[Rfam]
Nucleotides: 142
Stems, first nucleotide, its partner, number of pairs: 001074002003071003008066006016057002023054009083135007091126002096124005
Number, partner (000 for none) and nucleotide at each position: 001074g002073u003071g004070c005069u006000u007000u008066a009065c010064u011063u012062g013061a014000u015000u016057u017056a018000a019000a020000u021000u022000a023054u024053g025052u026051c027050g028049a029048g030047c031046u032000g033000a034000u035000a036000a037000u038000u039000a040000u041000u042000a043000u044000g045000a046031g047030g048029u049028u050027c051026g052025a053024c054023a055000a056017u057016a058000g059000u060000u061013u062012c063011g064010a065009g066008u067000u068000u069005a070004g071003c072000u073002a074001u075000a076000a077000a078000a079000a080000u081000a082000a083135g084134u085133u086132u087131c088130c089129c090000u091126c092125g093000c094000u095000a096124u097123c098122c099121g100120a101000u102000g103000a104000u105000a106000c107000u108000c109000u110000u111000u112000u113000c114000g115000u116000g117000c118000a119000u120100u121099u122098g123097g124096a125092c126091g127000u128000c129089g130088g131087g132086g133085a134084a135083c136000u137000a138000c139000a140000u141000u142000u

This 142-nucleotide sequence belongs to the Rfam family "Small nucleolar RNA snoR136". Pairs were carried over by alignment from the consensus structure, which was predicted with mfold. Rfam classes the family as an H/ACA-box small nucleolar RNA. Rfam 15.1 lists 452 matches to the family in 212 species.